[Rfam]
RNA sequence: UGUAGCAUGUGCCAUCGCCACCAAGUGUACUUCAGUGGACAUUUUGUCAGCAUGAAAUCUGAGCACACUUGGUAGCGGUGCCGUGAGCUACU
Dot-bracket structure: .(((((.((((.((((((.(((((((((.((.(((.......................))))).))))))))).)))))).)))).))))).
Numbered sequence: 001u002g003u004a005g006c007a008u009g010u011g012c013c014a015u016c017g018c019c020a021c022c023a024a025g026u027g028u029a030c031u032u033c034a035g036u037g038g039a040c041a042u043u044u045u046g047u048c049a050g051c052a053u054g055a056a057a058u059c060u061g062a063g064c065a066c067a068c069u070u071g072g073u074a075g076c077g078g079u080g081c082c083g084u085g086a087g088c089u090a091c092u
Stems, first nucleotide, its partner, number of pairs: 002091005008085004013080006020073009030063002033061003
mir-2006 microRNA precursor family: a 92-nucleotide sequence from Lytechinus variegatus. Rfam links the family to the GO terms miRNA-mediated post-transcriptional gene silencing and RISC complex. The family's consensus secondary structure was predicted with RNAalifold. The organism belongs to Lytechinus, within Eukaryota.